[Rfam]
Description:
Mu-gpT-DE RNA: a 51-nucleotide RNA sequence. Rfam classes the family as a small RNA. The base pairs follow the family's consensus structure, which is taken from published work.
RNA sequence: UCCUGACAGCCCAUUGGGGGCUGACACUAGCCACGACAGGAGAUUGACAUG
Numbered sequence: 001u002c003c004u005g006a007c008a009g010c011c012c013a014u015u016g017g018g019g020g021c022u023g024a025c026a027c028u029a030g031c032c033a034c035g036a037c038a039g040g041a042g043a044u045u046g047a048c049a050u051g
Base pairs, nucleotide, nucleotide: 002040003039004038005037007023008022009021010020011019